Overview: The record is a 69-nucleotide RNA from Xenopus tropicalis, which matches "mir-33 microRNA precursor family" in Rfam. The literature on the family includes a 2010 paper in Mol Hum Reprod by Ahn et al., "MicroRNA transcriptome in the newborn mouse ovaries determined by massive parallel sequencing". Rfam links the family to the GO terms RISC complex and gene silencing by miRNA. The base pairs follow the family's consensus structure, which was predicted with PFOLD.
RNA sequence: CCCUGGUGCAUUGUUGUUGCAUUGCAUGUCACCUUGGACGUUGUGCAAUGUUUCUUCAGUGCAGUAUGG
Numbered sequence: 001c002c003c004u005g006g007u008g009c010a011u012u013g014u015u016g017u018u019g020c021a022u023u024g025c026a027u028g029u030c031a032c033c034u035u036g037g038a039c040g041u042u043g044u045g046c047a048a049u050g051u052u053u054c055u056u057c058a059g060u061g062c063a064g065u066a067u068g069g
Base pairs, nucleotide, nucleotide: 002069003068007063008062009061010060011059012058013057016054019051021049022048023047024046025045026044027043